[Rfam]
RNA sequence: UGGCAAAUGAUGAUUCUCUGGAUUCCCCUUCACGACUGGUGACUGAAAUACUCCAUUUGCUGAUGCC
Numbered sequence: 001u002g003g004c005a006a007a008u009g010a011u012g013a014u015u016c017u018c019u020g021g022a023u024u025c026c027c028c029u030u031c032a033c034g035a036c037u038g039g040u041g042a043c044u045g046a047a048a049u050a051c052u053c054c055a056u057u058u059g060c061u062g063a064u065g066c067c
Stems, first nucleotide, its partner, number of pairs: 002067004
Dot-bracket structure: .((((..........................................................))))
A member of the RNA family "Small nucleolar RNA snoR60" from Adiantum capillus-veneris, 67 nucleotides long. Rfam links the family to the GO terms nucleolus and RNA processing. A reference for the family is Barneche et al. (2000), "Fibrillarin genes encode both a conserved nucleolar protein and a novel small nucleolar RNA involved in ribosomal RNA methylation in Arabidopsis thaliana", J Biol Chem. It scores 41 bits against the family's covariance model. The base pairs follow the family's consensus structure, which was predicted with PFOLD. Lineage of the source: Eukaryota > Viridiplantae > Euphyllophyta > Vittarioideae > Adiantum.